[Rfam]
RNA sequence: GUGUCCGAUAUGCCUAAUUCCGGGCGCGUCGCCCGGGAGCCGGGGAACCACCGCACCUGGGGUGAACCACUUCGGUGGAAGGGCCUCCUCCAGCCCGAACCCGUCAGCUAACCCGGCAGGCGCGAGGAGAGGAGAG
Numbered sequence: 001g002u003g004u005c006c007g008a009u010a011u012g013c014c015u016a017a018u019u020c021c022g023g024g025c026g027c028g029u030c031g032c033c034c035g036g037g038a039g040c041c042g043g044g045g046a047a048c049c050a051c052c053g054c055a056c057c058u059g060g061g062g063u064g065a066a067c068c069a070c071u072u073c074g075g076u077g078g079a080a081g082g083g084c085c086u087c088c089u090c091c092a093g094c095c096c097g098a099a100c101c102c103g104u105c106a107g108c109u110a111a112c113c114c115g116g117c118a119g120g121c122g123c124g125a126g127g128a129g130a131g132g133a134g135a136g
Stems, first nucleotide, its partner, number of pairs: 011122004018038009039117006049059002060102003067078004081096004
Shown here is a 136-nucleotide RNA sequence from Streptosporangium album, a member of the family "c-di-AMP riboswitch aptamer (ydaO/yuaA leader)". Rfam's curators write: This family represents a conserved RNA structure found upstream of the ydaO and yuaA genes in Bacillus subtilis and related genes in other bacteria.